[Rfam]
Nucleotides: 064
Stems, first nucleotide, its partner, number of pairs: 010025004016055006033045004
Number, partner (000 for none) and nucleotide at each position: 001000a002000u003000a004000a005000u006000a007000a008000u009000a010025g011024g012023u013022u014000a015000u016055g017054a018053a019052g020051u021050u022013a023012a024011c025010c026000u027000u028000u029000a030000a031000c032000u033045g034044c035043u036042u037000a038000u039000u040000a041000a042036a043035a044034g045033c046000u047000a048000a049000u050021g051020a052019c053018u054017u055016c056000u057000a058000c059000a060000a061000a062000u063000u064000u